[Rfam]
RNA: Bacterial small signal recognition particle RNA
RNA sequence: GAGAGGUUGGCGCGGGCGAGCGCCUCGCCAACCUGGUCAGGUCCGGAAGGAAGCAGCCACAACGAGUCCCGCUUGGGUCGAUGUCCAGCCUCUCACUU
Numbered sequence: 001g002a003g004a005g006g007u008u009g010g011c012g013c014g015g016g017c018g019a020g021c022g023c024c025u026c027g028c029c030a031a032c033c034u035g036g037u038c039a040g041g042u043c044c045g046g047a048a049g050g051a052a053g054c055a056g057c058c059a060c061a062a063c064g065a066g067u068c069c070c071g072c073u074u075g076g077g078u079c080g081a082u083g084u085c086c087a088g089c090c091u092c093u094c095a096c097u098u
Base pairs, nucleotide, nucleotide: 003092004091005090006089007088009085010084011083012082013080014079017075018074019073020072021071022070024066025065026064027063034059035058036057037056042051043050044049